[Rfam]
RNA sequence: AGUAUAAACCAUUGAAUCCGCACAUGCGCCGACACAUCCAGUCGGGUGCCCUGACCCUUCGGGAACGGGUUUCUGGAUGGGGUGCAUGGAGGCCCAAC
Dot-bracket structure: ......................((((((((....(((((((......((((...............))))..))))))).))))))))..........